Shown here is a 108-nucleotide sequence from Psychrobacillus insolitus, a member of the family "RNA Staph. aureus E (RoxS)".
A search with the family's covariance model found it, with a score of 81 bits.
The literature on the family includes a 2009 paper in Nucleic Acids Res by Geissmann et al., "A search for small noncoding RNAs in Staphylococcus aureus reveals a conserved sequence motif for regulation".
Its family is annotated with regulation of translational initiation in the Gene Ontology.
NCBI's taxonomy places the organism under Bacteria, Bacillati, Bacilli, Bacillaceae, Psychrobacillus.
It was shown to be regulated by the presence of nitric oxide (NO). In Bacillus subtilis it controls expression of genes with functions related to oxidative stress and oxidation-reduction reactions and it was renamed RoxS (for related to oxidative stress).
[Rfam]
RNA sequence: GUGAAAUAAAUCACAAUAAAACAUACACCCCUUUGUUUGAACGUGAACAUUUCUCCCAUCCCCUUUGUAAAUGAAAAAACCCUUACCUCAAUUGGAGGAAAGGGUUUU
Numbered sequence: 001g002u003g004a005a006a007u008a009a010a011u012c013a014c015a016a017u018a019a020a021a022c023a024u025a026c027a028c029c030c031c032u033u034u035g036u037u038u039g040a041a042c043g044u045g046a047a048c049a050u051u052u053c054u055c056c057c058a059u060c061c062c063c064u065u066u067g068u069a070a071a072u073g074a075a076a077a078a079a080c081c082c083u084u085a086c087c088u089c090a091a092u093u094g095g096a097g098g099a100a101a102g103g104g105u106u107u108u
Base pairs, nucleotide, nucleotide: 003053004052005051006050007049011046012045013044014043019038020037021036022035023034079105080104081103082102083101084100086098087097088096089095